[Rfam]
RNA sequence: CCGUUCUUGUGUUAUUCGCUGAACUCAUUUACCUAGUUCAGCGAUUGUCAAACAGAACGCAGAAUAAAGCAUUACUCCACGAUGUUAAGCUCAUUACUGCCAGAGCUCUUACAUUACUACAAAUUCCUUGCGACAAAA
Numbered sequence: 001c002c003g004u005u006c007u008u009g010u011g012u013u014a015u016u017c018g019c020u021g022a023a024c025u026c027a028u029u030u031a032c033c034u035a036g037u038u039c040a041g042c043g044a045u046u047g048u049c050a051a052a053c054a055g056a057a058c059g060c061a062g063a064a065u066a067a068a069g070c071a072u073u074a075c076u077c078c079a080c081g082a083u084g085u086u087a088a089g090c091u092c093a094u095u096a097c098u099g100c101c102a103g104a105g106c107u108c109u110u111a112c113a114u115u116a117c118u119a120c121a122a123a124u125u126c127c128u129u130g131c132g133a134c135a136a137a138a
Stems, first nucleotide, its partner, number of pairs: 002059006010050002016044007081115005088107004

Shown here is a 138-nucleotide sequence from Drosophila willistoni, a member of the family "Small nucleolar RNA psi18S-1377". The family's RNA type in Rfam is H/ACA-box small nucleolar RNA. Rfam describes the family as follows. psi18S-1377 is a member of the H/ACA class of snoRNA. This family is responsible for guiding the modification of uridines 1377 and 1279 to pseudouridine in Drosophila 18S rRNA. It is one of the family's seed sequences.